[Rfam]
RNA sequence: UUCGCCAAUUAGGACUUCACAACAUGCGAAUACCACCACUUCUAUGGAUAUUCGUUGUUGAUGAAGUCUUAAUGGACGUC
Numbered sequence: 001u002u003c004g005c006c007a008a009u010u011a012g013g014a015c016u017u018c019a020c021a022a023c024a025u026g027c028g029a030a031u032a033c034c035a036c037c038a039c040u041u042c043u044a045u046g047g048a049u050a051u052u053c054g055u056u057g058u059u060g061a062u063g064a065a066g067u068c069u070u071a072a073u074g075g076a077c078g079u080c
Base pairs, nucleotide, nucleotide: 003078004077006075008073009072010071011070012069013068014067015066016065017064018063019062020060021059022058023057024056027054028053029052030051031050032049033047034046
Dot-bracket structure: ..((.(.(((((((((((((((((..((((((((...........)).)))))).))))).)))))))))))).).))..

mir-76 microRNA precursor family: an 80-nucleotide RNA sequence from Caenorhabditis briggsae. Rfam's curators put it in the seed alignment.